[Rfam]
RNA sequence: GGCAGAUGAUGUCUUUUCUUACAAUGGUCUGCAGAUGCCACUGUGGGCAGUGCCGAAAACACCACACGUUCAGCUGAUGUCGGUGG
Numbered sequence: 001g002g003c004a005g006a007u008g009a010u011g012u013c014u015u016u017u018c019u020u021a022c023a024a025u026g027g028u029c030u031g032c033a034g035a036u037g038c039c040a041c042u043g044u045g046g047g048c049a050g051u052g053c054c055g056a057a058a059a060c061a062c063c064a065c066a067c068g069u070u071c072a073g074c075u076g077a078u079g080u081c082g083g084u085g086g
Base pairs, nucleotide, nucleotide: 001081002080003079004078
RNA: Small nucleolar RNA SNORD35